[Rfam]
RNA sequence: UUCUUAUCCAGAGUGGCGGAGGGACUGGCCCUAUGAUGCCCGGCAACCACGCUUGUUUCAGCGAAUGGUGCCAAUUCCUGCAGAACGGGAUCCGUUCUGAGAGAUGAGAA
Dot-bracket structure: ((((((((....(.(((...(((.[.[[)))......))))((((.((.(((........)))...))))))...(]].]((((((.......))))))..)))))))))

Rfam assigns this 110-nucleotide RNA sequence from Lihuaxuella thermophila to the family "SAM riboswitch aptamer (S box leader)". The source organism's lineage runs through Bacteria, Bacillota, Bacilli, Caryophanales and Lihuaxuella. Gene Ontology term of the family: regulation of gene expression.